[Rfam]
RNA sequence: AAAAAAGCUUUCUAGGGUUCCGCUGAUCUUUGCAGGUCAGGGCUGGUCCGAGAGAGAGCGGUAUAGGGGAUCCUAUAUACACGGAGGGACAAAAGCCUGGGAGAU
Dot-bracket structure: ......((((((..((...(((((((((......))))))..).)).))....)))))).(((((((....))))))).(.[...(((.......))).)..]..